[Rfam]
RNA sequence: GGGUGCUCGGAUCUUUUUAUUCCGAGUUAUCUUUUUCGAUUAGGAUUUUUUAUUUGAAGGAGAGUAUACAAGGGAUAAAAAGAGAAAAGCCCCUGAUUAGAUAAUCUUAACCAGGAGCCGCUCUUUAUGCCCAGAAACAUAAAGGUAGCGCCUCAUUUGCUUAAACGCAAGGGAAAACACGCUAUG
Numbered sequence: 001g002g003g004u005g006c007u008c009g010g011a012u013c014u015u016u017u018u019a020u021u022c023c024g025a026g027u028u029a030u031c032u033u034u035u036u037c038g039a040u041u042a043g044g045a046u047u048u049u050u051u052a053u054u055u056g057a058a059g060g061a062g063a064g065u066a067u068a069c070a071a072g073g074g075a076u077a078a079a080a081a082g083a084g085a086a087a088a089g090c091c092c093c094u095g096a097u098u099a100g101a102u103a104a105u106c107u108u109a110a111c112c113a114g115g116a117g118c119c120g121c122u123c124u125u126u127a128u129g130c131c132c133a134g135a136a137a138c139a140u141a142a143a144g145g146u147a148g149c150g151c152c153u154c155a156u157u158u159g160c161u162u163a164a165a166c167g168c169a170a171g172g173g174a175a176a177a178c179a180c181g182c183u184a185u186g
Stems, first nucleotide, its partner, number of pairs: 001093003005090003012083012026069002094113002097110001099107003114152002117149002122145008157177002161173001
Rfam assigns this 186-nucleotide sequence to the family "sok antitoxin (CssrC)". The family has 91 seed sequences and 305 matches in Rfam 15.1. Also identified in Shigella as CssrC. A reference for the family is Kawano et al. (2007), "An antisense RNA controls synthesis of an SOS-induced toxin evolved from an antitoxin", Mol Microbiol.